[Rfam]
RNA sequence: CCGACAACGGGCCUGCGUCAGUGUCAGACAGAUCAGGCCACGACCGUGAGUGGCCAUAAAAUUGAUCGCUUCAGGGGUCACUUUCUCCGCGGCAAUGAUCA
Dot-bracket structure: ..(.(.((((..(((...)))..))......((..(.(...).).))..)).).).......(((((((..(.((((.....))).).)..))...)))))
A member of the RNA family "Vibrio RNA AS9" from Photobacterium halotolerans, 101 nucleotides long. NCBI's taxonomy places the organism under Bacteria, Pseudomonadati, Pseudomonadota, Vibrionales, Photobacterium. Pairs were carried over by alignment from the consensus structure, which was predicted with RNAfold. Rfam's curators write: Identified by direct cloning an parallel sequencing experiments with 5S/tRNA depletion.